[Rfam]
RNA sequence: GUCUCAAUGAGGAUCUCAAGACCUACCGAUAGGAAGUGCCGUUUGACACUGUAAACAGCAGCUGCUUCUUUCUGCUGCAGUUGUCUAUUCUUCGACCAUAACCUUUGUGGUUUGGUCUGGGAUGGAGCCCCAUCUGUAGUUGUUGGAAUCAGCUGUGGUGUGAUUUAAAUCGGGUCUCUGAGGGGU
Number, nucleotide and partner (000 for none) at each position: 001g186002u185003c184004u183005c182006a000007a000008u000009g000010a000011g000012g000013a000014u000015c000016u000017c000018a000019a000020g000021a000022c000023c000024u000025a000026c000027c000028g000029a000030u000031a000032g000033g000034a000035a000036g000037u000038g000039c000040c000041g000042u000043u000044u000045g000046a000047c000048a000049c000050u000051g000052u000053a000054a000055a000056c000057a000058g000059c000060a000061g000062c000063u000064g000065c000066u000067u000068c000069u000070u000071u000072c000073u000074g000075c139076u138077g137078c136079a135080g134081u000082u132083g131084u126085c125086u124087a123088u122089u121090c120091u000092u000093c000094g117095a116096c115097c114098a113099u000100a112101a111102c110103c109104u000105u000106u000107g000108u000109g103110g102111u101112u100113u098114g097115g096116u095117c094118u000119g000120g090121g089122a088123u087124g086125g085126a084127g000128c000129c000130c000131c083132a082133u000134c080135u079136g078137u077138a076139g075140u000141u000142g000143u000144u000145g000146g000147a000148a000149u000150c000151a000152g000153c000154u000155g000156u000157g000158g000159u000160g000161u000162g000163a000164u000165u000166u000167a000168a000169a000170u000171c000172g000173g000174g000175u000176c000177u000178c000179u000180g000181a000182g005183g004184g003185g002186u001
Rfam assigns this 186-nucleotide RNA sequence from Miscanthus lutarioriparius to the family "Small nucleolar RNA Z112".
Lineage of the source: Eukaryota > Mesangiospermae > Poales > Poaceae > Miscanthus.
Rfam 15.1 lists 427 matches to the family in 103 species.